RNA sequence: AAGGAGGAUGUGAGAGUUAGCAUUCCUGCCUAAUACCAUCUUCAUAGAUUUAAUGUGUCAUUUUUUCAUGCCAAACUAUUAGAUAGUUUUGCUGUAAGAGAAGUGGACUCUUAU
Dot-bracket structure: (.(.(((((((........)))))).).).)........................(.(...........((.(.(((.......))).).))............).).......
Numbered sequence: 001a002a003g004g005a006g007g008a009u010g011u012g013a014g015a016g017u018u019a020g021c022a023u024u025c026c027u028g029c030c031u032a033a034u035a036c037c038a039u040c041u042u043c044a045u046a047g048a049u050u051u052a053a054u055g056u057g058u059c060a061u062u063u064u065u066u067c068a069u070g071c072c073a074a075a076c077u078a079u080u081a082g083a084u085a086g087u088u089u090u091g092c093u094g095u096a097a098g099a100g101a102a103g104u105g106g107a108c109u110c111u112u113a114u
Stems, first nucleotide, its partner, number of pairs: 001031001003029001005027001006025006056107001058105001070092002073089001075087003
Annotation:
The family of this 114-nucleotide RNA from Zizania palustris is "Small nucleolar RNA snoR104". A reference for the family is Marker et al. (2002), "Experimental RNomics: identification of 140 candidates for small non-messenger RNAs in the plant Arabidopsis thaliana", Curr Biol. It scores 47 bits against the family's covariance model. The family's consensus secondary structure was predicted with WAR. By type it is an H/ACA-box small nucleolar RNA.